[Rfam]
RNA sequence: ACCGUUUCGCGUUUACCAGCUCACAAAAGGACGUUUUCUCGCUAAAAUUGUCGUCAGCGCUGGUGGGAAAUUCGGUGGUUCUCCCCAUCCACGGUACUUGCAACUUUCGUUAACGAGAGAUUGUCGGUACCGACCAACUGCUCCUGAGAGCUUCCAGGCGUGUAAACGCUGGGCGGUGCCAUCAGAAAUAGCAAUCGUAGCGGGCUUAGGCUCGCAACGGUUAUGGGAAGGCACUGCGGAUGGUUGGUCCUUCGCUAAGAGGAAGGGCUAUUGAGUGCAAUAUGCGAACUUGGUUCUCUGGACCAGGCACCCGAUACCGAUCAUCGUU
Numbered sequence: 001a002c003c004g005u006u007u008c009g010c011g012u013u014u015a016c017c018a019g020c021u022c023a024c025a026a027a028a029g030g031a032c033g034u035u036u037u038c039u040c041g042c043u044a045a046a047a048u049u050g051u052c053g054u055c056a057g058c059g060c061u062g063g064u065g066g067g068a069a070a071u072u073c074g075g076u077g078g079u080u081c082u083c084c085c086c087a088u089c090c091a092c093g094g095u096a097c098u099u100g101c102a103a104c105u106u107u108c109g110u111u112a113a114c115g116a117g118a119g120a121u122u123g124u125c126g127g128u129a130c131c132g133a134c135c136a137a138c139u140g141c142u143c144c145u146g147a148g149a150g151c152u153u154c155c156a157g158g159c160g161u162g163u164a165a166a167c168g169c170u171g172g173g174c175g176g177u178g179c180c181a182u183c184a185g186a187a188a189u190a191g192c193a194a195u196c197g198u199a200g201c202g203g204g205c206u207u208a209g210g211c212u213c214g215c216a217a218c219g220g221u222u223a224u225g226g227g228a229a230g231g232c233a234c235u236g237c238g239g240a241u242g243g244u245u246g247g248u249c250c251u252u253c254g255c256u257a258a259g260a261g262g263a264a265g266g267g268c269u270a271u272u273g274a275g276u277g278c279a280a281u282a283u284g285c286g287a288a289c290u291u292g293g294u295u296c297u298c299u300g301g302a303c304c305a306g307g308c309a310c311c312c313g314a315u316a317c318c319g320a321u322c323a324u325c326g327u328u
Base pairs, nucleotide, nucleotide: 002284015064016063017062018061019060030052031051032050033049035047036046037045073319074318075317076316077315087241088240089239090238140151141150142149143148157170158169159168160167161166174236175235176234177233178232179231180230193222194221195220289307290306291305292304293303294302295301
This 328-nucleotide RNA sequence from Scheffersomyces stipitis belongs to the Rfam family "Nuclear RNase P". About the family: Ribonuclease P (RNase P) is a ubiquitous endoribonuclease, found in archaea, bacteria and eukarya as well as chloroplasts and mitochondria. Its best characterised activity is the generation of mature 5'-ends of tRNAs by cleaving the 5'-leader elements of precursor-tRNAs. Cellular RNase Ps are ribonucleoproteins. RNA from bacterial RNase Ps retains its catalytic activity in the absence of the protein subunit, i.e. it is a ribozyme. The literature on the family includes a 1998 paper in Annu Rev Biochem by Frank and Pace, "Ribonuclease P: unity and diversity in a tRNA processing ribozyme". Taxonomically the source falls in Scheffersomyces stipitis (Eukaryota, saccharomyceta, Saccharomycotina, Serinales). The family's RNA type in Rfam is ribozyme.